RNA sequence: GUCACAAACCCGCCGUUAAUUGCUCAGGCAAUAUAACGGGGGCUUGAUUUAAAGCCCAUGAUGUGACCAGUUCACCUGAUUUUCAGGUAAACGUUAUCUAAUUCAUGACACCUCUUGGUACGUGCCAGCCUAGAGCAACUGUCGUCUAAUUUUAAACAUUGCUAAACGGGUUAACGAAGUGAAUUAGGCCAAACAAGAUUAGAUAACUGAACGAGGCAAACAUUAC
Dot-bracket structure: ((((((...((.((.....((((....))))......)).))(((......))).......))))))..(((..(((((...))))).....(((((((((((....((..((((.(((...[[[[.))).)))).....)).(((((((((...((.(((.(((.....))).))).))))))))))).......)))))))))))..)))..]]]]........
Numbered sequence: 001g002u003c004a005c006a007a008a009c010c011c012g013c014c015g016u017u018a019a020u021u022g023c024u025c026a027g028g029c030a031a032u033a034u035a036a037c038g039g040g041g042g043c044u045u046g047a048u049u050u051a052a053a054g055c056c057c058a059u060g061a062u063g064u065g066a067c068c069a070g071u072u073c074a075c076c077u078g079a080u081u082u083u084c085a086g087g088u089a090a091a092c093g094u095u096a097u098c099u100a101a102u103u104c105a106u107g108a109c110a111c112c113u114c115u116u117g118g119u120a121c122g123u124g125c126c127a128g129c130c131u132a133g134a135g136c137a138a139c140u141g142u143c144g145u146c147u148a149a150u151u152u153u154a155a156a157c158a159u160u161g162c163u164a165a166a167c168g169g170g171u172u173a174a175c176g177a178a179g180u181g182a183a184u185u186a187g188g189c190c191a192a193a194c195a196a197g198a199u200u201a202g203a204u205a206a207c208u209g210a211a212c213g214a215g216g217c218a219a220a221c222a223u224u225a226c
Stems, first nucleotide, its partner, number of pairs: 001067006010042002013039002020031004043054003070212003075087005093207011108142002112135004117130003123218004144189009156180002159177003163173003